[Rfam]
RNA sequence: GAAGAAGGAUCAAAGACUAAGAACGCCACAUCGUGUGGCAAUGUCUUUGUAUCCCACAUCCUGUGGG
Numbered sequence: 001g002a003a004g005a006a007g008g009a010u011c012a013a014a015g016a017c018u019a020a021g022a023a024c025g026c027c028a029c030a031u032c033g034u035g036u037g038g039c040a041a042u043g044u045c046u047u048u049g050u051a052u053c054c055c056a057c058a059u060c061c062u063g064u065g066g067g
Stems, first nucleotide, its partner, number of pairs: 011049007025039005053067005
RNA: Bacillaceae-1 RNA
Organism: Domibacillus iocasae